[Rfam]
The family of this 86-nucleotide RNA sequence from Caenorhabditis briggsae is "mir-46/mir-47/mir-281 microRNA precursor family". The family has 57 seed sequences and 307 matches in Rfam 15.1.
RNA sequence: UACAAGUGAAGCUGAAGAGAGCCGUCUAUUGACAGUUCGCUUGUUUCAUGUGCUGUCAUGGAGUCGCUCUCUUCAGAUGAUCUGAA
Numbered sequence: 001u002a003c004a005a006g007u008g009a010a011g012c013u014g015a016a017g018a019g020a021g022c023c024g025u026c027u028a029u030u031g032a033c034a035g036u037u038c039g040c041u042u043g044u045u046u047c048a049u050g051u052g053c054u055g056u057c058a059u060g061g062a063g064u065c066g067c068u069c070u071c072u073u074c075a076g077a078u079g080a081u082c083u084g085a086a
Stems, first nucleotide, its partner, number of pairs: 014074005020068003025062004031057003035053002
Description
The sequence is in the family's curated seed alignment.